RNA sequence: UUCCAUCUUCGGGGCAGGGUGCAAUUCCCGACCGACGGUGAUGAACCCACUUGGUGUUCUAAGUCCGUGACCCGUUUAGCCAAUAGGUUAAACGGUUGACCUAGUGUGAAUCUAGGACCGACAGUUAAAGUCUGGAUGGGAGAAGAUGUUG
Dot-bracket structure: ...(((((((......(((.......))).[[((((((........................[[))))...((((................))))....(((((.......)))))]])).(((.....]]))).......)))))))...
Numbered sequence: 001u002u003c004c005a006u007c008u009u010c011g012g013g014g015c016a017g018g019g020u021g022c023a024a025u026u027c028c029c030g031a032c033c034g035a036c037g038g039u040g041a042u043g044a045a046c047c048c049a050c051u052u053g054g055u056g057u058u059c060u061a062a063g064u065c066c067g068u069g070a071c072c073c074g075u076u077u078a079g080c081c082a083a084u085a086g087g088u089u090a091a092a093c094g095g096u097u098g099a100c101c102u103a104g105u106g107u108g109a110a111u112c113u114a115g116g117a118c119c120g121a122c123a124g125u126u127a128a129a130g131u132c133u134g135g136a137u138g139g140g141a142g143a144a145g146a147u148g149u150u151g
Stems, first nucleotide, its partner, number of pairs: 004148007017029003031131002033120002035068004063118002072095004100116005122134003
This 151-nucleotide sequence from Pontibacillus litoralis belongs to the Rfam family "FMN riboswitch aptamer (RFN element)".
A search with the family's covariance model found it, with a score of 115 bits.
Lineage of the source: Bacteria > Bacillati > Bacilli > Caryophanales > Pontibacillus litoralis.
Rfam links the family to the GO term FMN binding.